RNA sequence: GCAUACACUGAGUGGCCAGAUUAUUGUGAUCUCAAAAUGCAUAAUAAUCUGGCCACUCAGUGUAUAU
Numbered sequence: 001g002c003a004u005a006c007a008c009u010g011a012g013u014g015g016c017c018a019g020a021u022u023a024u025u026g027u028g029a030u031c032u033c034a035a036a037a038u039g040c041a042u043a044a045u046a047a048u049c050u051g052g053c054c055a056c057u058c059a060g061u062g063u064a065u066a067u
Stems, first nucleotide, its partner, number of pairs: 004064014019049010

A member of the RNA family "mir-9256 microRNA precursor family" from Pipistrellus kuhlii, 67 nucleotides long. Taxonomically the source falls in Pipistrellus (Eukaryota, Eumetazoa, Chordata, Yangochiroptera). Rfam 15.1 lists 31,772 matches to the family in 5 species. It scores 87 bits against the family's covariance model.